[Rfam]
RNA sequence: UAACGAUUACUCUGUAGCCACUUUGAGUUAUGAUAAUUACUAUAUUAAUUUACGAGAUUAUAGUAACUCCAUACUAAAUGGUUUACUAUAACGUUAUGGUAAAUAUCUUCAUGUGUUAUAGAUCAACUAUUGUAAAUAUGUAUUGAUAUUAUCGUAAAUUAGUAUAUAAAAUUAUCAUAAAUGAAGGUGCACACACACGUUA
Numbered sequence: 001u002a003a004c005g006a007u008u009a010c011u012c013u014g015u016a017g018c019c020a021c022u023u024u025g026a027g028u029u030a031u032g033a034u035a036a037u038u039a040c041u042a043u044a045u046u047a048a049u050u051u052a053c054g055a056g057a058u059u060a061u062a063g064u065a066a067c068u069c070c071a072u073a074c075u076a077a078a079u080g081g082u083u084u085a086c087u088a089u090a091a092c093g094u095u096a097u098g099g100u101a102a103a104u105a106u107c108u109u110c111a112u113g114u115g116u117u118a119u120a121g122a123u124c125a126a127c128u129a130u131u132g133u134a135a136a137u138a139u140g141u142a143u144u145g146a147u148a149u150u151a152u153c154g155u156a157a158a159u160u161a162g163u164a165u166a167u168a169a170a171a172u173u174a175u176c177a178u179a180a181a182u183g184a185a186g187g188u189g190c191a192c193a194c195a196c197a198c199g200u201u202a
Stems, first nucleotide, its partner, number of pairs: 001202005011197001013195003019189006028180011041166013056153003060149003065143001072134003078130006086121009098108002
The family of this 202-nucleotide RNA sequence from Sorghum bicolor is "MIR6217 microRNA precursor family". Lineage of the source: Eukaryota > Viridiplantae > Streptophytina > Magnoliopsida > Sorghum. Its family is annotated with miRNA-mediated post-transcriptional gene silencing and RISC complex in the Gene Ontology.